Shown here is a 71-nucleotide sequence from Eleutherodactylus coqui, a member of the family "mir-34 microRNA precursor family". The family has 113 seed sequences and 2,256 matches in Rfam 15.1. Gene Ontology terms of the family: RISC complex and miRNA-mediated post-transcriptional gene silencing. From the family's description: Human mir-34a was discovered computationally and later experimentally verified. It scores 65 bits against the family's covariance model.

[Rfam]
RNA sequence: GCUUUUAGGCAGUGUAGUUAGCUGAUUGUGUGAAUACAGUUUACAAUCACUAACUAAACUACCAUCAAAAC
Numbered sequence: 001g002c003u004u005u006u007a008g009g010c011a012g013u014g015u016a017g018u019u020a021g022c023u024g025a026u027u028g029u030g031u032g033a034a035u036a037c038a039g040u041u042u043a044c045a046a047u048c049a050c051u052a053a054c055u056a057a058a059c060u061a062c063c064a065u066c067a068a069a070a071c
Stems, first nucleotide, its partner, number of pairs: 003069003008063002011060003015056007023049008